[Rfam]
RNA sequence: AGGUUACCGAUUACUUUUGGUGUUCAGAGUCUGCUUUCGUUUCUAGCACCAUUUGAAAUCGGUUACAG
Numbered sequence: 001a002g003g004u005u006a007c008c009g010a011u012u013a014c015u016u017u018u019g020g021u022g023u024u025c026a027g028a029g030u031c032u033g034c035u036u037u038c039g040u041u042u043c044u045a046g047c048a049c050c051a052u053u054u055g056a057a058a059u060c061g062g063u064u065a066c067a068g
Stems, first nucleotide, its partner, number of pairs: 003066002007062006014055001018051005026044003